[Rfam]
RNA sequence: CAGUGUGCAUUUUUUUUCACAGGGUCUCUCUUGAGUCCCAGAGUAAAAUUUUUGGAGCCUCCGCAAGGAGGUA
Numbered sequence: 001c002a003g004u005g006u007g008c009a010u011u012u013u014u015u016u017u018c019a020c021a022g023g024g025u026c027u028c029u030c031u032u033g034a035g036u037c038c039c040a041g042a043g044u045a046a047a048a049u050u051u052u053u054g055g056a057g058c059c060u061c062c063g064c065a066a067g068g069a070g071g072u073a
Base pairs, nucleotide, nucleotide: 022039023038024037026035027034028033057072058071059070060069061068062067
RNA: SmY spliceosomal RNA